This 92-nucleotide RNA sequence from Rhinopithecus bieti belongs to the Rfam family "Y RNA". It is annotated as a non-coding RNA gene. The family's consensus secondary structure is taken from published work. It scores 50 bits against the family's covariance model. The source organism's lineage runs through Eukaryota, Teleostomi, Sarcopterygii, Cercopithecidae and Rhinopithecus.

RNA sequence: GGCUGGUGCAAGUGCAGUGGUGUUUACAACUAAUUAAUCACAGAUUUCUUUGUCCCUUCUCCACUCCCACAGGUUUACUUGUCUAGCCUUUA
Number, nucleotide and partner (000 for none) at each position: 001g088002g087003c086004u085005g084006g083007u000008g000009c000010a080011a079012g000013u000014g076015c000016a000017g070018u069019g068020g067021u000022g066023u000024u000025u000026a000027c000028a000029a053030c052031u000032a050033a049034u000035u000036a000037a000038u000039c000040a000041c000042a000043g000044a000045u000046u000047u000048c000049u033050u032051u000052g030053u029054c000055c000056c000057u000058u000059c000060u000061c000062c000063a000064c000065u000066c022067c020068c019069a018070c017071a000072g000073g000074u000075u000076u014077a000078c000079u011080u010081g000082u000083c006084u005085a004086g003087c002088c001089u000090u000091u000092a000